[Rfam]
RNA sequence: CCUCCUUUUCUAGUUGGGGUUUGGGUGCAGUCUCAGUCUCCCUCAUGCACAGCGGCGGAGGUGAAAAGCUCCAGGCCCUUGCUGUCAUGUCUUUGUUGCCUGGGGCUUCCAGCCUAUGGGCUCUGUCCUCAAGCGCUGGAGCACAG
Numbered sequence: 001c002c003u004c005c006u007u008u009u010c011u012a013g014u015u016g017g018g019g020u021u022u023g024g025g026u027g028c029a030g031u032c033u034c035a036g037u038c039u040c041c042c043u044c045a046u047g048c049a050c051a052g053c054g055g056c057g058g059a060g061g062u063g064a065a066a067a068g069c070u071c072c073a074g075g076c077c078c079u080u081g082c083u084g085u086c087a088u089g090u091c092u093u094u095g096u097u098g099c100c101u102g103g104g105g106c107u108u109c110c111a112g113c114c115u116a117u118g119g120g121c122u123c124u125g126u127c128c129u130c131a132a133g134c135g136c137u138g139g140a141g142c143a144c145a146g
Stems, first nucleotide, its partner, number of pairs: 001055002004052001016041004022035004080138002083135003099120004104115002